[Rfam]
RNA sequence: AAAAAGACAAACCCUGAAUUUCCGUGUCCAACUUUAACUGUCCGUCUUAUAUGAAUUUUUUUUAUAAUUCGUAUUUUCAUUGUUGUUAGAUGAUAAAACAUGAUUAAUAUUUUAUGCGUGACUUAUCUUUUUAAUUUUUUCAUAAUUUUUUUAAAUAAGACGGACAGUCAAACGUUAGGCAUGGAAAUC
Numbered sequence: 001a002a003a004a005a006g007a008c009a010a011a012c013c014c015u016g017a018a019u020u021u022c023c024g025u026g027u028c029c030a031a032c033u034u035u036a037a038c039u040g041u042c043c044g045u046c047u048u049a050u051a052u053g054a055a056u057u058u059u060u061u062u063u064a065u066a067a068u069u070c071g072u073a074u075u076u077u078c079a080u081u082g083u084u085g086u087u088a089g090a091u092g093a094u095a096a097a098a099c100a101u102g103a104u105u106a107a108u109a110u111u112u113u114a115u116g117c118g119u120g121a122c123u124u125a126u127c128u129u130u131u132u133a134a135u136u137u138u139u140u141c142a143u144a145a146u147u148u149u150u151u152u153a154a155a156u157a158a159g160a161c162g163g164a165c166a167g168u169c170a171a172a173c174g175u176u177a178g179g180c181a182u183g184g185a186a187a188u189c
Stems, first nucleotide, its partner, number of pairs: 027179002030176003033172003037168014
RNA: MIR812 microRNA precursor family
Organism: Oryza barthii